[Rfam]
RNA: Pseudomonas sRNA P26
Organism: Pseudomonas sp. TTU2014-080ASC
RNA sequence: GACCUUGCGUCUGCAGCCGAAGCGACUCGCGUAAGGCUGAUGGCUGGUGGCUUUUGCCACCGGCCU
Numbered sequence: 001g002a003c004c005u006u007g008c009g010u011c012u013g014c015a016g017c018c019g020a021a022g023c024g025a026c027u028c029g030c031g032u033a034a035g036g037c038u039g040a041u042g043g044c045u046g047g048u049g050g051c052u053u054u055u056g057c058c059a060c061c062g063g064c065c066u
Stems, first nucleotide, its partner, number of pairs: 014039005022030002042065010